[Rfam]
RNA sequence: GCAGAUCUGAAAAGCGGGCGGGCCGCUCACCGGUCCCGCCCCACCCAAGGUGCAAACCGCGGCCCCCGCAGGGGUCACGGUGAACCUCUCAGGUUCCGAUGACAGAUGGGGAGGC
Number, nucleotide and partner (000 for none) at each position: 001g000002c110003a000004g000005a107006u106007c105008u104009g103010a000011a000012a000013a000014g000015c000016g041017g040018g039019c038020g037021g036022g035023c000024c000025g000026c000027u000028c000029a000030c000031c000032g000033g000034u000035c022036c021037c020038g019039c018040c017041c016042c000043a094044c093045c092046c000047a089048a000049g000050g088051u000052g086053c000054a000055a000056a081057c080058c079059g078060c000061g000062g000063c000064c000065c000066c000067c000068g000069c000070a000071g000072g000073g000074g000075u000076c000077a000078c059079g058080g057081u056082g000083a000084a000085c000086c052087u000088c050089u047090c000091a000092g045093g044094u043095u000096c000097c000098g000099a000100u000101g000102a000103c009104a008105g007106a006107u005108g000109g000110g002111g000112a000113g000114g000115c000